[Rfam]
RNA sequence: CUUGCCAGCUGGGGGAGUUCUUCCGAACUGAGACAGGCACCGCCUGAGACCCUUUGAACCUGAUCCGGCUAGAACCGGCGUAGGGAAGCGGCGCGAACUCCCA
Number, nucleotide and partner (000 for none) at each position: 001c000002u000003u000004g000005c000006c091007a000008g089009c088010u087011g053012g052013g051014g050015g000016a000017g028018u027019u026020c025021u000022u000023c000024c000025g020026a019027a018028c017029u000030g000031a000032g000033a000034c000035a045036g044037g043038c042039a000040c000041c000042g038043c037044c036045u035046g000047a000048g000049a000050c014051c013052c012053u011054u000055u000056g000057a000058a000059c084060c083061u082062g081063a000064u000065c078066c077067g076068g075069c000070u000071a000072g000073a000074a000075c068076c067077g066078g065079c000080g000081u062082a061083g060084g059085g000086a000087a010088g009089c008090g000091g006092c000093g000094c000095g000096a000097a000098c000099u000100c000101c000102c000103a000